serC leader: a 54-nucleotide sequence from Skermanella stibiiresistens. The source organism's lineage runs through Bacteria, Pseudomonadati, Rhodospirillales, Skermanella and Skermanella stibiiresistens. This family is a putative regulatory RNA structure that is found upstream of the serC-serA operon in some alpha-proteobacteria. The final stem of the structure overlaps the ribosome binding site of the serC reading frame. For this family Rfam cites "Evidence for a second class of S-adenosylmethionine riboswitches and other regulatory RNA motifs in alpha-proteobacteria" (Corbino et al., Genome Biol, 2005).
[Rfam]
RNA sequence: CGCCGGGCCACAACCCCCCAACGGGUUGCAACUAUUCUGCAAGGAAUAGCAUCA
Numbered sequence: 001c002g003c004c005g006g007g008c009c010a011c012a013a014c015c016c017c018c019c020a021a022c023g024g025g026u027u028g029c030a031a032c033u034a035u036u037c038u039g040c041a042a043g044g045a046a047u048a049g050c051a052u053c054a
Stems, first nucleotide, its partner, number of pairs: 011028006032049003036045003